[Rfam]
RNA sequence: UGCAAUGAUGCUGUAAUUUGCGUCUGAUGGUGCAGUGUGCAGACAGUUGCCUGCUGUCAAUUAAUGUCACUGGCUCUCAUUGAAGAAGUUUUAAACUGAGCA
Numbered sequence: 001u002g003c004a005a006u007g008a009u010g011c012u013g014u015a016a017u018u019u020g021c022g023u024c025u026g027a028u029g030g031u032g033c034a035g036u037g038u039g040c041a042g043a044c045a046g047u048u049g050c051c052u053g054c055u056g057u058c059a060a061u062u063a064a065u066g067u068c069a070c071u072g073g074c075u076c077u078c079a080u081u082g083a084a085g086a087a088g089u090u091u092u093a094a095a096c097u098g099a100g101c102a
Stems, first nucleotide, its partner, number of pairs: 001102003021085001023083002030075001033072003040066002042058005